[Rfam]
RNA sequence: UGUCAUCGCGAUGAAGAUGCCAAAGCUCCCUCUUCUGAUAUUUGAAAUUGAGGAAAUUUGCUGGCAGAAUCGAACCAUAAAAUCUUGGCCACCACUGAGUGA
Numbered sequence: 001u002g003u004c005a006u007c008g009c010g011a012u013g014a015a016g017a018u019g020c021c022a023a024a025g026c027u028c029c030c031u032c033u034u035c036u037g038a039u040a041u042u043u044g045a046a047a048u049u050g051a052g053g054a055a056a057u058u059u060g061c062u063g064g065c066a067g068a069a070u071c072g073a074a075c076c077a078u079a080a081a082a083u084c085u086u087g088g089c090c091a092c093c094a095c096u097g098a099g100u101g102a
Stems, first nucleotide, its partner, number of pairs: 006102004
The family of this 102-nucleotide RNA from Vigna radiata is "Small nucleolar RNA R30/Z108". The family has 6 seed sequences and 626 matches in Rfam 15.1. On this family, see Marker et al., Curr Biol 2002: "Experimental RNomics. Identification of 140 Candidates for Small Non-Messenger RNAs in the Plant Arabidopsis thaliana". Rfam describes the family as follows. snoR30 is a C/D box small nucleolar RNA which acts as a methylation guide for 18S ribosomal RNA in plants. It is annotated as a C/D-box small nucleolar RNA. Its family is annotated with RNA processing and nucleolus in the Gene Ontology. The base pairs follow the family's consensus structure, which was predicted with PFOLD.